[Rfam]
RNA: c-di-AMP riboswitch aptamer (ydaO/yuaA leader)
RNA sequence: UUAACCAAUCAGCCGAAUUCCCGUAAAGUCGGGAAGCGGGGGAACCAGUAGUGGGUGAAUUGAUCUUGCAUCAAAGGGAUCAUAGGGGACCUUCAACCGAAUCCUUAAGCUAACCUCGCAGGCACCAGGAGGAAUCAUA
Numbered sequence: 001u002u003a004a005c006c007a008a009u010c011a012g013c014c015g016a017a018u019u020c021c022c023g024u025a026a027a028g029u030c031g032g033g034a035a036g037c038g039g040g041g042g043a044a045c046c047a048g049u050a051g052u053g054g055g056u057g058a059a060u061u062g063a064u065c066u067u068g069c070a071u072c073a074a075a076g077g078g079a080u081c082a083u084a085g086g087g088g089a090c091c092u093u094c095a096a097c098c099g100a101a102u103c104c105u106u107a108a109g110c111u112a113a114c115c116u117c118g119c120a121g122g123c124a125c126c127a128g129g130a131g132g133a134a135u136c137a138u139a
Stems, first nucleotide, its partner, number of pairs: 012123003018035006036119006053104003061082007085098002